[Rfam]
RNA: DUF805b RNA
RNA sequence: AAAGGGGAAUGCCGAAAACCUAAAAUAGAGUAGGCA
Numbered sequence: 001a002a003a004g005g006g007g008a009a010u011g012c013c014g015a016a017a018a019c020c021u022a023a024a025a026u027a028g029a030g031u032a033g034g035c036a
Stems, first nucleotide, its partner, number of pairs: 003021003011035003